[Rfam]
RNA: Molybdenum/Tungsten riboswitch aptamer (Moco RNA motif)
RNA sequence: UAUAGAUCCUAUCUCCGAGCCAGAUAAUACCUAAUGAGAAAUCUAUGGUAACCGGUCAGGGCUUUAAGUCCUCAGGGUGUAUCUGGAAACGGAUAGGCCUUCACUAUUGAAAAGGAGGUGGCUAAGCUGGCUA
Dot-bracket structure: ..........((((((..(((.(.(...(((....((....))...)))).).))).(((((.....)))))..((((.((((((....)))))).))))((......))...))))))..............
Numbered sequence: 001u002a003u004a005g006a007u008c009c010u011a012u013c014u015c016c017g018a019g020c021c022a023g024a025u026a027a028u029a030c031c032u033a034a035u036g037a038g039a040a041a042u043c044u045a046u047g048g049u050a051a052c053c054g055g056u057c058a059g060g061g062c063u064u065u066a067a068g069u070c071c072u073c074a075g076g077g078u079g080u081a082u083c084u085g086g087a088a089a090c091g092g093a094u095a096g097g098c099c100u101u102c103a104c105u106a107u108u109g110a111a112a113a114g115g116a117g118g119u120g121g122c123u124a125a126g127c128u129g130g131c132u133a
Stems, first nucleotide, its partner, number of pairs: 011119006019056003023052001025050001029049003036043002058072005075100004080095006101110002